[Rfam]
RNA: DUF805b RNA
RNA sequence: CAGGUGGAUGCCGAAAAGCCUCAGAAAAGAGUAGGUG
Numbered sequence: 001c002a003g004g005u006g007g008a009u010g011c012c013g014a015a016a017a018g019c020c021u022c023a024g025a026a027a028a029g030a031g032u033a034g035g036u037g
Stems, first nucleotide, its partner, number of pairs: 002021004010036003